[Rfam]
Rfam assigns this 68-nucleotide RNA from Dechloromonas sp. to the family "int-alpA RNA". It is annotated as a small RNA. Rfam's curators write: Acidobacteria (1 example), Planctomycetes (1 example), Proteobacteria.
RNA sequence: GCCGCGCCUACUCCGACGGGAGGAACACCGGGCACCCUUACCCGGCUGGCGCGGCAUCUGAUUAAGGG
Numbered sequence: 001g002c003c004g005c006g007c008c009u010a011c012u013c014c015g016a017c018g019g020g021a022g023g024a025a026c027a028c029c030g031g032g033c034a035c036c037c038u039u040a041c042c043c044g045g046c047u048g049g050c051g052c053g054g055c056a057u058c059u060g061a062u063u064a065a066g067g068g
Stems, first nucleotide, its partner, number of pairs: 001055008011022004028045005035068006